[Rfam]
RNA sequence: GGUUGCAAGAUUGAGGCCACUGCAGAAGUGCUCAUGGCACAGCCCUCUCAGAUUCUAAACGAAUCUGUGAAUUUUGCU
Numbered sequence: 001g002g003u004u005g006c007a008a009g010a011u012u013g014a015g016g017c018c019a020c021u022g023c024a025g026a027a028g029u030g031c032u033c034a035u036g037g038c039a040c041a042g043c044c045c046u047c048u049c050a051g052a053u054u055c056u057a058a059a060c061g062a063a064u065c066u067g068u069g070a071a072u073u074u075u076g077c078u
Stems, first nucleotide, its partner, number of pairs: 013045001015044003022077006028040003049067007
Record summary: Rfam assigns this 78-nucleotide sequence from Crocodylus porosus to the family "Mammalian CPEB3 ribozyme". Gene Ontology term of the family: RNA nuclease activity. Rfam describes the family as follows. The mammalian CPEB3 ribozyme is a self cleaving RNA located in the second intron of the CPEB3 gene which belongs to a family of genes regulating messenger RNA polyadenylation. A search with the family's covariance model found it, with a score of 52 bits. NCBI's taxonomy places the organism under Eukaryota, Deuterostomia, Vertebrata, Gnathostomata, Crocodylus.